Background:
Shown here is a 35-nucleotide RNA sequence from Sarcophilus harrisii, a member of the family "Iron response element I". A search with the family's covariance model found it, with a score of 36 bits. NCBI's taxonomy places the organism under Eukaryota, Craniata, Sarcopterygii, Amniota, Sarcophilus.

[Rfam]
RNA sequence: UUGUUUCUUGCUUCAACAGUGUUUGUACAAAACAG
Numbered sequence: 001u002u003g004u005u006u007c008u009u010g011c012u013u014c015a016a017c018a019g020u021g022u023u024u025g026u027a028c029a030a031a032a033c034a035g
Stems, first nucleotide, its partner, number of pairs: 001035005008029001010028001012027001014025003017021001